[Rfam]
RNA sequence: AUCACCGUGGUUCGUAACCAUCCCACGCAAAAAAACUAGGAAGGA
Dot-bracket structure: .....(((((....[[......))))).........]].......
RNA: PreQ1 (pre queuosine) riboswitch aptamer
Organism: Oceanobacillus iheyensis